Small nucleolar RNA R12: a 77-nucleotide RNA sequence from Solanum lycopersicum. Taxonomically the source falls in Solanum subgen. Lycopersicon (Eukaryota, Streptophyta, Euphyllophyta, Solaneae). Rfam classes the family as a C/D-box small nucleolar RNA. snoR12 is a C/D box small nucleolar RNA, which acts as a methylation guide for 25S ribosomal RNA in plants. snoR12 has been alternatively named snoZ44 in Arabidopsis and snoZ131 in rice.
[Rfam]
RNA sequence: GUAAGGAUGAUGAAGAAAUCAUUCGGAUUCCCACUGAUUGAUCUGUGAUUACUUCAACCAGCUACUUCUGACUUCAC
Numbered sequence: 001g002u003a004a005g006g007a008u009g010a011u012g013a014a015g016a017a018a019u020c021a022u023u024c025g026g027a028u029u030c031c032c033a034c035u036g037a038u039u040g041a042u043c044u045g046u047g048a049u050u051a052c053u054u055c056a057a058c059c060a061g062c063u064a065c066u067u068c069u070g071a072c073u074u075c076a077c
Base pairs, nucleotide, nucleotide: 001077002076003074004073005072